Rfam assigns this 76-nucleotide RNA from a Lachnospiraceae bacterium to the family "c-di-GMP-I riboswitch aptamer". About the family: GEMM was predicted in a large-scale screen for bacterial structured RNA regulatory elements. Genes associated with GEMM are involved in a diverse array of functions, including chemotaxis regulation, signal transduction, secretion and chitin. The organism belongs to Lachnospiraceae, within Bacteria. A search with the family's covariance model found it, with a score of 58 bits.
RNA sequence: CUGAAUAUUCAGCAAACCUGUUGAAAAGCAGGGACGCAAAGCUAAAGGGGCCCGAAAGAGCCAGCCAGCUGCCGGA
Dot-bracket structure: ...........((...((((((....))))))...))..((((...(((((.(....).)))..))))))......